[Rfam]
RNA sequence: GUUUCUUCUCCUAUUUCUUGGACGUUUCCUCCCUAAACUUGGCGGUGCAAUUUUGCACCGCCUUUUUUUUGCUCAGC
Numbered sequence: 001g002u003u004u005c006u007u008c009u010c011c012u013a014u015u016u017c018u019u020g021g022a023c024g025u026u027u028c029c030u031c032c033c034u035a036a037a038c039u040u041g042g043c044g045g046u047g048c049a050a051u052u053u054u055g056c057a058c059c060g061c062c063u064u065u066u067u068u069u070u071g072c073u074c075a076g077c
Stems, first nucleotide, its partner, number of pairs: 009022003041062009
Dot-bracket structure: ........(((........)))..................(((((((((....)))))))))...............
A member of the RNA family "Makes More Granules Regulator RNA (mmgR)" from Acidocella aminolytica, 77 nucleotides long. It scores 51 bits against the family's covariance model.